mir-8517 microRNA precursor family: a 105-nucleotide RNA sequence from Plutella xylostella.
The family's consensus secondary structure was predicted with RNAalifold.
The source organism's lineage runs through Eukaryota, Panarthropoda, Eumetabola, Amphiesmenoptera and Plutella.
RNA sequence: UUACUUGGCACUUUAGCUAUUGAACUGUUCUGUCACUCUCUGACAGAGAACAAGUUCUUUGACAGAGAGUGACAAAACAGUUCAAUAGCUAAAGAGUCCAGUAAG
Numbered sequence: 001u002u003a004c005u006u007g008g009c010a011c012u013u014u015a016g017c018u019a020u021u022g023a024a025c026u027g028u029u030c031u032g033u034c035a036c037u038c039u040c041u042g043a044c045a046g047a048g049a050a051c052a053a054g055u056u057c058u059u060u061g062a063c064a065g066a067g068a069g070u071g072a073c074a075a076a077a078c079a080g081u082u083c084a085a086u087a088g089c090u091a092a093a094g095a096g097u098c099c100a101g102u103a104a105g
Base pairs, nucleotide, nucleotide: 001104002103003102004101005100011094012093013092014091015090016089017088018087019086020085021084022083023082024081025080026079027078028077029066030065031064032063033062034061035060049056050055
Source information:
The match comes from Rfam's covariance-model search (104 bits).